[Rfam]
RNA sequence: CUAAUGCCAUGGUGUAAGUCGCUCUGGAUAAGAGCGUCUGCUAAAUGACUAAAA
Numbered sequence: 001c002u003a004a005u006g007c008c009a010u011g012g013u014g015u016a017a018g019u020c021g022c023u024c025u026g027g028a029u030a031a032g033a034g035c036g037u038c039u040g041c042u043a044a045a046u047g048a049c050u051a052a053a054a
Stems, first nucleotide, its partner, number of pairs: 013043001014041003020036006
RNA: UnaL2 LINE 3' element